This 52-nucleotide RNA from Kaistia soli belongs to the Rfam family "ffh sRNA".
Lineage of the source: Bacteria > Pseudomonadota > Hyphomicrobiales > Kaistiaceae > Kaistia soli.
A reference for the family is Meyer et al. (2009), "Identification of candidate structured RNAs in the marine organism 'Candidatus Pelagibacter ubique'", BMC Genomics.
By type it is a small RNA.
[Rfam]
RNA sequence: GAGUCCGGAGGUCAACGUCCGCCAGCGCGUCGCGCCCGCGGGCGGCGAUCGC
Numbered sequence: 001g002a003g004u005c006c007g008g009a010g011g012u013c014a015a016c017g018u019c020c021g022c023c024a025g026c027g028c029g030u031c032g033c034g035c036c037c038g039c040g041g042g043c044g045g046c047g048a049u050c051g052c
Stems, first nucleotide, its partner, number of pairs: 016044007025035004
Dot-bracket structure: ...............(((((((..((((...))))..)))))))........